Annotation:
MIR2629 microRNA precursor family: a 65-nucleotide RNA sequence from Medicago truncatula. Lineage of the source: Eukaryota > Spermatophyta > eudicotyledons > Pentapetalae > Medicago. A search with the family's covariance model found it, with a score of 62 bits.
RNA sequence: GGUUUGAGGUUUCCUCGGCAGUGAACUGUCGAAGUUUUCCUCGAUAGUUAACUGCCGAGGAGCAU
Numbered sequence: 001g002g003u004u005u006g007a008g009g010u011u012u013c014c015u016c017g018g019c020a021g022u023g024a025a026c027u028g029u030c031g032a033a034g035u036u037u038u039c040c041u042c043g044a045u046a047g048u049u050a051a052c053u054g055c056c057g058a059g060g061a062g063c064a065u
Stems, first nucleotide, its partner, number of pairs: 012061002015058008024049006